[Rfam]
RNA sequence: UGCCUUUAUGUGUUGCCCAUUUGUUGCUUUCUACAAUGAAUGUGGCGUCAACAAAGGCGUACAGCAAUUCUUGGAUCGGCCUUAGCGAGGUUCCUUCCUGGUGACCUUGUCCUAAGUUCAAUACCAAGUACAGCA
Dot-bracket structure: .((((((...((.((((((((((((.........)))))))).)))).))..))))))...........((((.((.((....(...((((...(........)....)).))...))).))..)))).......

The family of this 135-nucleotide RNA from Mastacembelus armatus is "Small nucleolar RNA SNORA13". The base pairs follow the family's consensus structure, which was predicted with CMfinder. A search with the family's covariance model found it, with a score of 78 bits. It is annotated as an H/ACA-box small nucleolar RNA. ACA13 is a member of the H/ACA class of snoRNA that guide the sites of modification of uridines to pseudouridines.